[Rfam]
RNA: Small nucleolar RNA SNORA71
RNA sequence: GCCUGCAUUCGAAAGUGAUGAAGGCCUCCACCUGUGGCCUUUGUCAUUGAUAGUGCAGGCAGAGAAUGCCUGAAAGCAUUUCCCGUGUUUGUGGGGCUCUUGCCAUCUCCUUCAAACCCUGAGCUUUUCAGACA
Numbered sequence: 001g002c003c004u005g006c007a008u009u010c011g012a013a014a015g016u017g018a019u020g021a022a023g024g025c026c027u028c029c030a031c032c033u034g035u036g037g038c039c040u041u042u043g044u045c046a047u048u049g050a051u052a053g054u055g056c057a058g059g060c061a062g063a064g065a066a067u068g069c070c071u072g073a074a075a076g077c078a079u080u081u082c083c084c085g086u087g088u089u090u091g092u093g094g095g096g097c098u099c100u101u102g103c104c105a106u107c108u109c110c111u112u113c114a115a116a117c118c119c120u121g122a123g124c125u126u127u128u129c130a131g132a133c134a
Stems, first nucleotide, its partner, number of pairs: 001060009014048008023039004069131001071130006087117005093110004